RNA: FMN riboswitch aptamer (RFN element)
RNA sequence: AUGGAUCUUCGGGGCAGGUGCAACUCCUGACCGGCGGUGAAAGCCCGCGACUCCUUAUUGAUGACGUCAGUAAGGACUGAUCUGGUGAGAUUCCAGAGCCGACGGUUAAAGUCCGGAUGGGAGAAGAUCACA
Numbered sequence: 001a002u003g004g005a006u007c008u009u010c011g012g013g014g015c016a017g018g019u020g021c022a023a024c025u026c027c028u029g030a031c032c033g034g035c036g037g038u039g040a041a042a043g044c045c046c047g048c049g050a051c052u053c054c055u056u057a058u059u060g061a062u063g064a065c066g067u068c069a070g071u072a073a074g075g076a077c078u079g080a081u082c083u084g085g086u087g088a089g090a091u092u093c094c095a096g097a098g099c100c101g102a103c104g105g106u107u108a109a110a111g112u113c114c115g116g117a118u119g120g121g122a123g124a125a126g127a128u129c130a131c132a
Stems, first nucleotide, its partner, number of pairs: 004129007016028003030112002032101002034048004043099002052076004081097005103115003